Rfam assigns this 193-nucleotide RNA to the family "manA RNA". It is one of the family's seed sequences. Pairs were carried over by alignment from the consensus structure, which is taken from published work. Rfam describes the family as follows. manA RNA has been located in 5'UTR regions of genes of mannose or fructose metabolism. Has been proposed as a cis-regulatory element and as a riboswitch candidate for his complex secondary structure.
RNA sequence: UUGGUCUGACGAGAUUAAUCGGAGUGACUGAAUAAACUUACUGGCAUAUAGCUGGUUAAGGUACUAGGACACAGGUGGUGCUGCUGGCAGUCAUGUCAGAAUCGACUUACCAGUCGGGUCUUAGGUAGAGAAGUUUUCUUACUGUAGAAAUGCCCUUCUCUUGUUGGUAUACAGUAUUCCAACCUCCACCCUU
Number, nucleotide and partner (000 for none) at each position: 001u018002u017003g016004g015005u014006c013007u000008g000009a000010c000011g000012a000013g006014a005015u004016u003017a002018a001019u000020c000021g187022g186023a185024g184025u000026g000027a062028c061029u000030g000031a000032a000033u000034a000035a000036a000037c000038u000039u000040a056041c055042u054043g053044g052045c051046a000047u000048a000049u000050a000051g045052c044053u043054g042055g041056u040057u000058a000059a000060g000061g028062u027063a000064c000065u123066a122067g121068g120069a119070c118071a000072c083073a082074g081075g000076u112077g111078g110079u109080g000081c074082u073083g072084c099085u098086g097087g096088c095089a094090g000091u000092c000093a000094u089095g088096u087097c086098a085099g084100a000101a000102u117103c116104g115105a114106c113107u000108u000109a079110c078111c077112a076113g106114u105115c104116g103117g102118g070119u069120c068121u067122u066123a065124g000125g000126u000127a161128g160129a159130g158131a157132a156133g155134u000135u150136u149137u148138c147139u000140u000141a000142c174143u173144g172145u171146a000147g138148a137149a136150a135151u000152g000153c000154c000155c133156u132157u131158c130159u129160c128161u127162u000163g183164u182165u181166g180167g179168u000169a000170u000171a145172c144173a143174g142175u000176a000177u000178u000179c167180c166181a165182a164183c163184c024185u023186c022187c021188a000189c000190c000191c000192u000193u000